RNA sequence: AAUAGAUGACGCCGUUGACUUCUUUAAAUAUGUUUGACCGUUCGUCUUAUUCAAAAAAUUUAAGUAAUUAUUAAUUCUUUUCCUACCAUUUGAUUCAUUGUUAAAUAUACUUUUAUGUAUACAUAUAGCUUUACAUAUUUCACAAAAGUUUUUGAAUAAGACGAAUGGUCAAACAUGUGAGAAAAAGUUAACGGCGUCAUCUAUU
Number, nucleotide and partner (000 for none) at each position: 001a000002a000003u000004a000005g000006a000007u000008g000009a000010c000011g000012c000013c000014g000015u000016u000017g000018a000019c000020u000021u000022c000023u000024u000025u000026a000027a000028a178029u177030a176031u175032g174033u173034u172035u171036g170037a169038c168039c167040g166041u165042u164043c163044g162045u161046c160047u159048u158049a157050u156051u000052c000053a000054a000055a000056a000057a000058a000059u000060u000061u000062a000063a000064g000065u000066a000067a000068u000069u000070a000071u000072u000073a000074a000075u000076u000077c000078u000079u000080u000081u000082c000083c000084u000085a000086c000087c000088a000089u000090u000091u000092g000093a000094u000095u000096c000097a000098u000099u000100g000101u000102u000103a000104a000105a000106u000107a000108u000109a000110c000111u000112u000113u000114u000115a000116u000117g000118u000119a000120u000121a000122c000123a000124u000125a000126u000127a000128g000129c000130u000131u000132u000133a000134c000135a000136u000137a000138u000139u000140u000141c000142a000143c000144a000145a000146a000147a000148g000149u000150u000151u000152u000153u000154g000155a000156a050157u049158a048159a047160g046161a045162c044163g043164a042165a041166u040167g039168g038169u037170c036171a035172a034173a033174c032175a031176u030177g029178u028179g000180a000181g000182a000183a000184a000185a000186a000187g000188u000189u000190a000191a000192c000193g000194g000195c000196g000197u000198c000199a000200u000201c000202u000203a000204u000205u000
RNA: MIR812 microRNA precursor family